[Rfam]
RNA sequence: GCGCGUCGGCACCUUGGCUCUAGACUGCUUACUGCUACGUAGCGUGAGAGACACAGUAACAGUCUACAGUCAUGGCUGGUGAACAGAA
Numbered sequence: 001g002c003g004c005g006u007c008g009g010c011a012c013c014u015u016g017g018c019u020c021u022a023g024a025c026u027g028c029u030u031a032c033u034g035c036u037a038c039g040u041a042g043c044g045u046g047a048g049a050g051a052c053a054c055a056g057u058a059a060c061a062g063u064c065u066a067c068a069g070u071c072a073u074g075g076c077u078g079g080u081g082a083a084c085a086g087a088a
Stems, first nucleotide, its partner, number of pairs: 012075002015072004023064005029059005
A member of the RNA family "mir-132 microRNA precursor family" from Pelodiscus sinensis, 88 nucleotides long.
A search with the family's covariance model found it, with a score of 65 bits.
Rfam 15.1 lists 1,023 matches to the family in 386 species.
A reference for the family is Chen et al. (2005), "The developmental miRNA profiles of zebrafish as determined by small RNA cloning", Genes Dev.